[Rfam]
Rfam assigns this 65-nucleotide sequence from Arabis alpina to the family "Small nucleolar RNA Z105". The family has 11 seed sequences and 621 matches in Rfam 15.1. The base pairs follow the family's consensus structure, which was predicted with CMfinder. Rfam links the family to the GO terms nucleolus and RNA processing. A reference for the family is Chen et al. (2003), "The high diversity of snoRNAs in plants: identification and comparative study of 120 snoRNA genes from Oryza sativa", Nucleic Acids Res.
Nucleotides: 065
Base pairs, nucleotide, nucleotide: 006060007059008058009057023040026037
Number, partner (000 for none) and nucleotide at each position: 001000a002000a003000g004000g005000c006060a007059u008058g009057a010000u011000g012000a013000g014000g015000a016000u017000u018000g019000u020000u021000u022000a023040u024000u025000c026037u027000g028000a029000u030000u031000c032000u033000u034000a035000u036000u037026g038000a039000u040023g041000a042000a043000u044000c045000a046000a047000a048000a049000c050000c051000u052000c053000c054000u055000a056000c057009u058008c059007a060006u061000u062000c063000u064000g065000a